[Rfam]
RNA: Small nucleolar RNA SNORD19
Organism: Nestor notabilis
RNA sequence: GAAAAAUGAAGAUAUUCUGACUCUUUUGUAUUACUACAGUGAAGACUUCAGAUCCAACUCUGAUUUCACUCGAAUU
Numbered sequence: 001g002a003a004a005a006a007u008g009a010a011g012a013u014a015u016u017c018u019g020a021c022u023c024u025u026u027u028g029u030a031u032u033a034c035u036a037c038a039g040u041g042a043a044g045a046c047u048u049c050a051g052a053u054c055c056a057a058c059u060c061u062g063a064u065u066u067c068a069c070u071c072g073a074a075u076u
Base pairs, nucleotide, nucleotide: 001067002066003065004064